[Rfam]
Nucleotides: 048
Base pairs, nucleotide, nucleotide: 003018004017005016006015007014008013035048036047037046038045039044
Number, partner (000 for none) and nucleotide at each position: 001000g002000c003018g004017c005016g006015g007014g008013g009000a010000c011000g012000a013008c014007c015006c016005c017004g018003c019000c020000a021000c022000g023000a024000a025000g026000c027000g028000g029000g030000c031000u032000u033000g034000g035048c036047g037046g038045g039044g040000a041000c042000g043000a044039c045038c046037c047036c048035g